[Rfam]
Shown here is a 152-nucleotide RNA sequence from Serratia ficaria, a member of the family "sok antitoxin (CssrC)". The organism belongs to Serratia, within Bacteria. About the family: Also identified in Shigella as CssrC. Its family is annotated with mRNA binding in the Gene Ontology.

RNA sequence: GGGUGCUCUGGAUCUUUCGUCCUGAGCAUAUGCCAGGGACAGAAAGAGAAAAGCCCCGAGUCGAUGUACAUCAACCCGAGGCCCACUCUAACGCCUGACAACGUUAAGUUAGCCUCUUACCCGCCGCGAGGCAAGGAGAAGAAGGCAUGAUG
Number, nucleotide and partner (000 for none) at each position: 001g057002g056003g055004u000005g054006c053007u052008c000009u051010g000011g000012a000013u047014c046015u045016u044017u043018c042019g040020u039021c038022c037023u036024g000025a000026g033027c032028a000029u000030a000031u000032g027033c026034c000035a000036g023037g022038g021039a020040c019041a000042g018043a017044a016045a015046g014047a013048g000049a000050a000051a009052a007053g006054c005055c003056c002057c001058g077059a000060g075061u074062c000063g072064a071065u070066g000067u000068a000069c000070a065071u064072c063073a000074a061075c060076c000077c058078g116079a115080g114081g113082c112083c000084c000085a110086c000087u108088c000089u106090a105091a104092c103093g102094c000095c000096u000097g000098a000099c000100a000101a000102c093103g092104u091105u090106a089107a000108g087109u000110u085111a000112g082113c081114c080115u079116c078117u000118u000119a000120c145121c144122c000123g000124c141125c000126g000127c000128g000129a000130g000131g000132c000133a000134a000135g000136g000137a000138g000139a000140a000141g124142a000143a000144g121145g120146c000147a000148u000149g000150a000151u000152g000
Rfam 15.1 lists 305 matches to the family in 167 species. Pairs were carried over by alignment from the consensus structure, which is taken from published work.